Rfam assigns this 121-nucleotide RNA sequence from Methanosarcina acetivorans to the family "Group II catalytic intron D1-D4-2". Rfam 15.1 lists 1,231 matches to the family in 625 species. Rfam links the family to the GO term Group II intron splicing. Group II introns are found in rRNA, tRNA and mRNA of organelles in fungi, plants and protists, and also in mRNA in bacteria. It is one of the family's seed sequences. The source organism's lineage runs through Archaea, Methanomicrobia, Methanosarcinaceae, Methanosarcina and Methanosarcina acetivorans.
[Rfam]
RNA sequence: GAGGGUAGACCCCUCGGACUCGCUUUACAGGAAGUUAUUCCAAACCACCCAUAAGCUGCUUUGGUCAAAAGCCACGGUAGUGAGCAUUAUGGGAAAAGGCGAGGCUAUGACUUCGUCAGGU
Numbered sequence: 001g002a003g004g005g006u007a008g009a010c011c012c013c014u015c016g017g018a019c020u021c022g023c024u025u026u027a028c029a030g031g032a033a034g035u036u037a038u039u040c041c042a043a044a045c046c047a048c049c050c051a052u053a054a055g056c057u058g059c060u061u062u063g064g065u066c067a068a069a070a071g072c073c074a075c076g077g078u079a080g081u082g083a084g085c086a087u088u089a090u091g092g093g094a095a096a097a098g099g100c101g102a103g104g105c106u107a108u109g110a111c112u113u114c115g116u117c118a119g120g121u
Stems, first nucleotide, its partner, number of pairs: 001015005016041003020037001023034004046120001048093002051090004055081002058078003062074004098117006